RNA: T-box leader
RNA sequence: UUAAUUACAGAGAACAAGACUAGUAGCAACCGCUAUUUACAAGAGAGACUUUUUUAGUAGCUGAAAGAAAAGUUUAAAUAUGGGUUGUGAAUUUCAUCUUGCGAGUAGGAUCUAAUCAAUUCCGGUAUUCACCGUUAUCGAAAACUUGAGUGUGGACAGUUUUUGUCCAAACUAGGGUGGUACCGCGAAGCUUCGUCCCUGAG
Numbered sequence: 001u002u003a004a005u006u007a008c009a010g011a012g013a014a015c016a017a018g019a020c021u022a023g024u025a026g027c028a029a030c031c032g033c034u035a036u037u038u039a040c041a042a043g044a045g046a047g048a049c050u051u052u053u054u055u056a057g058u059a060g061c062u063g064a065a066a067g068a069a070a071a072g073u074u075u076a077a078a079u080a081u082g083g084g085u086u087g088u089g090a091a092u093u094u095c096a097u098c099u100u101g102c103g104a105g106u107a108g109g110a111u112c113u114a115a116u117c118a119a120u121u122c123c124g125g126u127a128u129u130c131a132c133c134g135u136u137a138u139c140g141a142a143a144a145c146u147u148g149a150g151u152g153u154g155g156a157c158a159g160u161u162u163u164u165g166u167c168c169a170a171a172c173u174a175g176g177g178u179g180g181u182a183c184c185g186c187g188a189a190g191c192u193u194c195g196u197c198c199c200u201g202a203g
Base pairs, nucleotide, nucleotide: 007106008105015101016100017099018098026088027087028086029085030084031083036077037076047074048073049072050071051070052069053068054067109121110120123134124133125132153169154168155167156166157165158164159163174200175199176198177197185196186195187194188193